Small nucleolar RNA SNORA14: a 135-nucleotide sequence from Heliornis fulica. The family's consensus secondary structure was predicted with RNAfold. NCBI's taxonomy places the organism under Eukaryota, Eumetazoa, Bilateria, Neoaves, Heliornis. From the family's description: ACA14 is a member of the H/ACA class of snoRNA that guide the sites of modification of uridines to pseudouridines.
RNA sequence: GAGCAUUCUAAACCCUCCUGUCAGCUCUGUUAUUAGCUACCAGGAUAAGAAUGAAUGCCAGAGAAAACUGAUGAUCGAUCCAAAAUGCAGAGCUCUUCUCCUGUGGCUCUUCGUUAUUUCACAUCUUCAACAUUU
Numbered sequence: 001g002a003g004c005a006u007u008c009u010a011a012a013c014c015c016u017c018c019u020g021u022c023a024g025c026u027c028u029g030u031u032a033u034u035a036g037c038u039a040c041c042a043g044g045a046u047a048a049g050a051a052u053g054a055a056u057g058c059c060a061g062a063g064a065a066a067a068c069u070g071a072u073g074a075u076c077g078a079u080c081c082a083a084a085a086u087g088c089a090g091a092g093c094u095c096u097u098c099u100c101c102u103g104u105g106g107c108u109c110u111u112c113g114u115u116a117u118u119u120c121a122c123a124u125c126u127u128c129a130a131c132a133u134u135u
Stems, first nucleotide, its partner, number of pairs: 003058004007051001009049001016045005023038003062135003069129003073125002084115004089110002092107002098103001